Background:
The record is a 149-nucleotide RNA sequence from Fusarium avenaceum, which matches "Small nucleolar RNA snR80" in Rfam. Clan: SNORA28 clan. Rfam links the family to the GO terms nucleolus and RNA processing. Rfam classes the family as an H/ACA-box small nucleolar RNA. The literature on the family includes a 2004 paper in Nucleic Acids Res by Schattner et al., "Genome-wide searching for pseudouridylation guide snoRNAs: analysis of the Saccharomyces cerevisiae genome". The organism belongs to Fusarium tricinctum species complex, within Eukaryota.
RNA sequence: ACAACCUUGACUCACUCUGAAAUCUACCAUCAUACUCCGUGGUUUAUUUCUAUUUUUGUUCAAGGAAGAUGAACUAUGGCCCAAUACUCACCGCGACAUACUAGCCUUUGAGCUCUUGUGGAUGUAGCGGUCCAUCAUCAUGGCCACAU
Dot-bracket structure: ......(((.........(((((..(((............)))..)))))..........)))..............((((.........((((.(((..((.................)).))).))))...........))))....
Numbered sequence: 001a002c003a004a005c006c007u008u009g010a011c012u013c014a015c016u017c018u019g020a021a022a023u024c025u026a027c028c029a030u031c032a033u034a035c036u037c038c039g040u041g042g043u044u045u046a047u048u049u050c051u052a053u054u055u056u057u058g059u060u061c062a063a064g065g066a067a068g069a070u071g072a073a074c075u076a077u078g079g080c081c082c083a084a085u086a087c088u089c090a091c092c093g094c095g096a097c098a099u100a101c102u103a104g105c106c107u108u109u110g111a112g113c114u115c116u117u118g119u120g121g122a123u124g125u126a127g128c129g130g131u132c133c134a135u136c137a138u139c140a141u142g143g144c145c146a147c148a149u
Stems, first nucleotide, its partner, number of pairs: 007063003019050005026043003078145004091130004096125003101121002